[Rfam]
RNA sequence: UUGCUGUGAUGACUGUCUUAGGACACCUUUGGAGUACCCAUAAAAAAAGAAGGAAGUUAUUUCUGAGCAAU
Dot-bracket structure: ((((..............................................................)))).
Numbered sequence: 001u002u003g004c005u006g007u008g009a010u011g012a013c014u015g016u017c018u019u020a021g022g023a024c025a026c027c028u029u030u031g032g033a034g035u036a037c038c039c040a041u042a043a044a045a046a047a048a049g050a051a052g053g054a055a056g057u058u059a060u061u062u063c064u065g066a067g068c069a070a071u
Stems, first nucleotide, its partner, number of pairs: 001070004